[Rfam]
RNA sequence: AAUGAGCAUAAAGAGAAGGUUAAGACCUCGGCAACCUGGAUGGCUAUCCAAGGUGCUAGAACAUGUGGCAGAAAUGCAACUAAAUAGUCAAAA
Numbered sequence: 001a002a003u004g005a006g007c008a009u010a011a012a013g014a015g016a017a018g019g020u021u022a023a024g025a026c027c028u029c030g031g032c033a034a035c036c037u038g039g040a041u042g043g044c045u046a047u048c049c050a051a052g053g054u055g056c057u058a059g060a061a062c063a064u065g066u067g068g069c070a071g072a073a074a075u076g077c078a079a080c081u082a083a084a085u086a087g088u089c090a091a092a093a
Stems, first nucleotide, its partner, number of pairs: 006066004015029001017028004030057003035053003038049003042088001068077003
The record is a 93-nucleotide RNA sequence, which matches "SAM-I/IV (S-adenosyl methionine) riboswitch aptamer" in Rfam. A reference for the family is Weinberg et al. (2008), "The aptamer core of SAM-IV riboswitches mimics the ligand-binding site of SAM-I riboswitches", RNA. Clan: SAM clan. The sequence is in the family's curated seed alignment.